[Rfam]
RNA sequence: CAUUAGUGGGCCUGAAUCUUUGCUCAGCCUGAUCAUUCAAGCAGGUGAGCAAAGUUUCAGGUGUGUUGAUGG
Numbered sequence: 001c002a003u004u005a006g007u008g009g010g011c012c013u014g015a016a017u018c019u020u021u022g023c024u025c026a027g028c029c030u031g032a033u034c035a036u037u038c039a040a041g042c043a044g045g046u047g048a049g050c051a052a053a054g055u056u057u058c059a060g061g062u063g064u065g066u067u068g069a070u071g072g
Stems, first nucleotide, its partner, number of pairs: 002070006010062006018054004023049004028045003
Dot-bracket structure: .((((((..((((((..((((.((((.(((............))))))).))))..))))))..))))))..
A member of the RNA family "mir-87 microRNA precursor family" from Ladona fulva, 72 nucleotides long. The family has 44 seed sequences and 420 matches in Rfam 15.1. The match comes from Rfam's covariance-model search (62 bits). Gene Ontology terms of the family: miRNA-mediated post-transcriptional gene silencing and RISC complex.